[Rfam]
RNA sequence: UUACCAUAAAGAGAAGGUUAGAGACAAGCUCGACGAUCCUUCAGCAACCUGGUCAUGACUAAGGUGCUAAAGCUUGAAUGAUGGGGCAGUGCGCAUCCAUCGUCGAUGGGUG
Numbered sequence: 001u002u003a004c005c006a007u008a009a010a011g012a013g014a015a016g017g018u019u020a021g022a023g024a025c026a027a028g029c030u031c032g033a034c035g036a037u038c039c040u041u042c043a044g045c046a047a048c049c050u051g052g053u054c055a056u057g058a059c060u061a062a063g064g065u066g067c068u069a070a071a072g073c074u075u076g077a078a079u080g081a082u083g084g085g086g087c088a089g090u091g092c093g094c095a096u097c098c099a100u101c102g103u104c105g106a107u108g109g110g111u112g
Base pairs, nucleotide, nucleotide: 001112004109005108006107007106013042014041015040016039017038021031022030023029025076026075027074028073043068044067045066046065048064049063051060052059053058072104078100079099080098